[Rfam]
RNA sequence: AUCGGGGGCGACGACUGGCGAGGGUGGACCACCACCGGGGAGUCACAUUGGGAGCUGCAUCGCCCGCCUGGGUGCACCCG
Numbered sequence: 001a002u003c004g005g006g007g008g009c010g011a012c013g014a015c016u017g018g019c020g021a022g023g024g025u026g027g028a029c030c031a032c033c034a035c036c037g038g039g040g041a042g043u044c045a046c047a048u049u050g051g052g053a054g055c056u057g058c059a060u061c062g063c064c065c066g067c068c069u070g071g072g073u074g075c076a077c078c079c080g
Stems, first nucleotide, its partner, number of pairs: 003051001005049002008046001010044003015039002017068004024035004057075005

ZMP/ZTP riboswitch aptamer (pfl RNA motif): an 80-nucleotide sequence from Knoellia locipacati. A search with the family's covariance model found it, with a score of 47 bits. The source organism's lineage runs through Bacteria, Bacillati, Actinomycetes, Micrococcales and Knoellia. The family's consensus secondary structure is taken from published work. Gene Ontology terms of the family: one-carbon metabolic process and regulation of purine nucleotide biosynthetic process.